[Rfam]
RNA sequence: UAACUCCUCAAAGGGCUGUGAAAUGUUGCCAUUAUCUACUCAUAUCACAGCCAUUUUGAUGAGUUUCG
Numbered sequence: 001u002a003a004c005u006c007c008u009c010a011a012a013g014g015g016c017u018g019u020g021a022a023a024u025g026u027u028g029c030c031a032u033u034a035u036c037u038a039c040u041c042a043u044a045u046c047a048c049a050g051c052c053a054u055u056u057u058g059a060u061g062a063g064u065u066u067c068g
Base pairs, nucleotide, nucleotide: 005062006061008059009058010057011056012055013054014052015051016050017049018048019047020046021045024044025043026042
The record is a 68-nucleotide RNA sequence from Drosophila ananassae, which matches "mir-2 microRNA precursor family" in Rfam. The family has 56 seed sequences and 918 matches in Rfam 15.1. Rfam links the family to the GO terms RISC complex and miRNA-mediated post-transcriptional gene silencing. The source organism's lineage runs through Eukaryota, Altocrustacea, Allotriocarida, Sophophora and ananassae species complex.